[Rfam]
RNA sequence: CAAGUUCAAAACCAUAGCAGAAGCAUUCACUGCAUGGCCUGUCAGAGUCCAGUGAAUCUGUGAAUUCUGCU
Numbered sequence: 001c002a003a004g005u006u007c008a009a010a011a012c013c014a015u016a017g018c019a020g021a022a023g024c025a026u027u028c029a030c031u032g033c034a035u036g037g038c039c040u041g042u043c044a045g046a047g048u049c050c051a052g053u054g055a056a057u058c059u060g061u062g063a064a065u066u067c068u069g070c071u
Base pairs, nucleotide, nucleotide: 012037016071017070018069019068020067021066022065023033024032025031043060044059045058046057048055049054
The record is a 71-nucleotide RNA from Alligator sinensis, which matches "Mammalian CPEB3 ribozyme" in Rfam.
The base pairs follow the family's consensus structure, which is taken from published work.
Rfam's curators write: The mammalian CPEB3 ribozyme is a self cleaving RNA located in the second intron of the CPEB3 gene which belongs to a family of genes regulating messenger RNA polyadenylation.